[Rfam]
RNA sequence: ACACCGAAAGGAGGUGAUCCUGACUUGUGUAGUUUCAGGACGCGUGAGGUGGCUGUCCGCUAGCCGCCGGCCGACCCGUCGUGGUGACCGGCGGUAGGCGAAUUCCAGACAGACACCCGGCCCGCAGAUCCACCGUCUCGUCCACGGUGCCUGCCGGACCGGUGCGGUUGCGCACCGAUCCGGCAGGAAGCGACCUGCGGGCUGUCUGCU
Number, nucleotide and partner (000 for none) at each position: 001a000002c000003a000004c000005c000006g000007a000008a000009a000010g000011g000012a000013g057014g056015u055016g054017a000018u052019c000020c000021u000022g000023a000024c000025u000026u000027g000028u000029g000030u000031a000032g000033u000034u000035u000036c000037a000038g000039g000040a000041c000042g000043c000044g000045u000046g000047a000048g000049g000050u000051g000052g018053c000054u016055g015056u014057c013058c100059g099060c098061u097062a000063g095064c094065c000066g092067c091068c090069g089070g000071c000072c086073g000074a000075c000076c000077c000078g000079u000080c000081g000082u000083g000084g000085u000086g072087a000088c000089c069090g068091g067092c066093g000094g064095u063096a000097g061098g060099c059100g058101a000102a000103u000104u000105c000106c000107a000108g000109a000110c000111a000112g000113a000114c000115a000116c000117c000118c204119g203120g202121c201122c200123c199124g198125c197126a196127g195128a000129u193130c192131c000132a000133c186134c000135g184136u183137c182138u000139c000140g000141u000142c000143c000144a000145c000146g000147g000148u000149g000150c000151c000152u000153g000154c000155c000156g000157g000158a000159c000160c000161g000162g000163u000164g000165c000166g000167g000168u000169u000170g000171c000172g000173c000174a000175c000176c000177g000178a000179u000180c000181c000182g137183g136184c135185a000186g133187g000188a000189a000190g000191c000192g130193a129194c000195c127196u126197g125198c124199g123200g122201g121202c120203u119204g118205u000206c000207u000208g000209c000210u000
RNA: Actinobacteria sRNA Ms_IGR-5